A member of the RNA family "mir-290 microRNA precursor family" from Pipistrellus kuhlii, 67 nucleotides long.
RNA sequence: GGGGCACUCAAACUGUGGGGGCACUUUCUGUGCCGAGGGCAAAGUGCCGCCACGGUUUGAGGUCCCC
Numbered sequence: 001g002g003g004g005c006a007c008u009c010a011a012a013c014u015g016u017g018g019g020g021g022c023a024c025u026u027u028c029u030g031u032g033c034c035g036a037g038g039g040c041a042a043a044g045u046g047c048c049g050c051c052a053c054g055g056u057u058u059g060a061g062g063u064c065c066c067c
Base pairs, nucleotide, nucleotide: 004064007061008060009059010058011057012056015053016052017051018050020048021047022046023045024044025043026042027041
Dot-bracket structure: ...(..((((((..((((.((((((((.............)))))))).))))..))))))..)...

Record summary:
Gene Ontology terms of the family: miRNA-mediated post-transcriptional gene silencing and RISC complex.